[Rfam]
RNA sequence: AAUCAUCUGUAUUUUCAGUGUCUGAAAAACUCAAAUAUUGUUUGUGUUGUCAUCAGCUUCAUCUCUUGUUUGAAUGACGAGUUGGAAGUUAAAUAACAACACUAAAUUA
Number, nucleotide and partner (000 for none) at each position: 001a000002a000003u000004c000005a000006u000007c000008u000009g000010u000011a000012u000013u000014u000015u000016c000017a000018g000019u000020g000021u000022c000023u000024g000025a000026a000027a000028a000029a000030c000031u000032c000033a000034a000035a000036u000037a000038u000039u000040g000041u000042u000043u000044g102045u101046g100047u099048u098049g097050u000051c000052a000053u000054c000055a090056g089057c088058u087059u086060c085061a000062u000063c081064u080065c079066u000067u000068g000069u000070u000071u000072g000073a000074a000075u000076g000077a000078c000079g065080a064081g063082u000083u000084g000085g060086a059087a058088g057089u056090u055091a000092a000093a000094u000095a000096a000097c049098a048099a047100c046101a045102c044103u000104a000105a000106a000107u000108u000109a000
Shown here is a 109-nucleotide RNA sequence from Cicer arietinum, a member of the family "Small nucleolar RNA snoR97". Rfam 15.1 lists 862 matches to the family in 223 species. The organism belongs to Cicer, within Eukaryota.